[Rfam]
RNA sequence: CUCUUAUGAAGAGUGGCGGAGGGACUGGCCCAAUGAAGCCCGGCAACCUUUCAUUAUUUUGAAAAGGUGCUAAUUCCAGCAAUACCCAUGAGGUAUUGAGAAAUGAGAG
Number, nucleotide and partner (000 for none) at each position: 001c109002u108003c107004u106005u105006a104007u103008g000009a000010a000011g000012a000013g041014u000015g040016g039017c038018g000019g000020a000021g031022g030023g029024a000025c079026u078027g077028g076029c023030c022031c021032a000033a000034u000035g000036a000037a000038g017039c016040c015041c013042g071043g070044c069045a068046a000047c067048c066049u063050u062051u061052c000053a000054u000055u000056a000057u000058u000059u000060u000061g051062a050063a049064a000065a000066g048067g047068u045069g044070c043071u042072a000073a000074u000075u101076c028077c027078a026079g025080c098081a097082a096083u095084a094085c093086c000087c000088a000089u000090g000091a000092g000093g085094u084095a083096u082097u081098g080099a000100g000101a075102a000103a007104u006105g005106a004107g003108a002109g001
The family of this 109-nucleotide RNA from Terrilactibacillus tamarindi is "SAM riboswitch aptamer (S box leader)".
The match comes from Rfam's covariance-model search (93 bits).
The organism belongs to Terrilactibacillus, within Bacteria.